[Rfam]
RNA sequence: UUUUCAUUCUUUUUUAUCAGAUUGAUUAGGUCUGUUUCUGAUAAAAGACGAUGAUAGGAAACCUUCUUAACGUACGAUCUCGCCGUGAAUUGACACCGAGGCCGUGCGUUUUUUU
Numbered sequence: 001u002u003u004u005c006a007u008u009c010u011u012u013u014u015u016a017u018c019a020g021a022u023u024g025a026u027u028a029g030g031u032c033u034g035u036u037u038c039u040g041a042u043a044a045a046a047g048a049c050g051a052u053g054a055u056a057g058g059a060a061a062c063c064u065u066c067u068u069a070a071c072g073u074a075c076g077a078u079c080u081c082g083c084c085g086u087g088a089a090u091u092g093a094c095a096c097c098g099a100g101g102c103c104g105u106g107c108g109u110u111u112u113u114u115u
Stems, first nucleotide, its partner, number of pairs: 002056001004054005010048012069110008078101005085096003